Group II catalytic intron D1-D4-6: a 224-nucleotide RNA from Thermobacillus composti.
NCBI's taxonomy places the organism under Bacteria, Bacillati, Bacilli, Paenibacillaceae, Thermobacillus composti.
The family has 174 seed sequences and 1,617 matches in Rfam 15.1.

RNA sequence: GAAAUCCUGCUUGGAAAGGCUAAAGCCAAGCCACCAAUAGCGAGUCUUGAGCGACUGGAAGUAAUUUCAGGCGCUAAGCGUAGACAGUCAGGUAGUAGGCCUGAAAGUGAUGGAGCCUCGAAAAGAGUAAACCGGAGAGGUCGACGUUUUCGAAAGUACGGAAGACAACACUCAUUUCUGCGUCAAUGGCAAGGAGGAAUGAGCUCUCCCGGGGUCGAAGAGCC
Numbered sequence: 001g002a003a004a005u006c007c008u009g010c011u012u013g014g015a016a017a018g019g020c021u022a023a024a025g026c027c028a029a030g031c032c033a034c035c036a037a038u039a040g041c042g043a044g045u046c047u048u049g050a051g052c053g054a055c056u057g058g059a060a061g062u063a064a065u066u067u068c069a070g071g072c073g074c075u076a077a078g079c080g081u082a083g084a085c086a087g088u089c090a091g092g093u094a095g096u097a098g099g100c101c102u103g104a105a106a107g108u109g110a111u112g113g114a115g116c117c118u119c120g121a122a123a124a125g126a127g128u129a130a131a132c133c134g135g136a137g138a139g140g141u142c143g144a145c146g147u148u149u150u151c152g153a154a155a156g157u158a159c160g161g162a163a164g165a166c167a168a169c170a171c172u173c174a175u176u177u178c179u180g181c182g183u184c185a186a187u188g189g190c191a192a193g194g195a196g197g198a199a200u201g202a203g204c205u206c207u208c209c210c211g212g213g214g215u216c217g218a219a220g221a222g223c224c
Base pairs, nucleotide, nucleotide: 011037012036013035014034018032019031021030025190026189040088041087044085045084046083047082048080049079050075051074052073053072055070056069057068058067059066060065113216115215116214117213118212119211120210134209135208136207137206138205139204140166141165142164145160146159147158171203172202173201174200175199176198177197178196179195181193